[Rfam]
RNA sequence: AAGACUGUGUGUGACUGGCGAAACGCGGGGGUAACCGUAGGGGAGCACAUGGUGUCGAUGCCGUUCGCCUGGGCAGAGGUA
Numbered sequence: 001a002a003g004a005c006u007g008u009g010u011g012u013g014a015c016u017g018g019c020g021a022a023a024c025g026c027g028g029g030g031g032u033a034a035c036c037g038u039a040g041g042g043g044a045g046c047a048c049a050u051g052g053u054g055u056c057g058a059u060g061c062c063g064u065u066c067g068c069c070u071g072g073g074c075a076g077a078g079g080u081a
Stems, first nucleotide, its partner, number of pairs: 004053009015042002017069005025038004059075004
This 81-nucleotide RNA from Niallia taxi belongs to the Rfam family "ZMP/ZTP riboswitch aptamer (pfl RNA motif)".
The base pairs follow the family's consensus structure, which is taken from published work.
The organism belongs to Niallia, within Bacteria.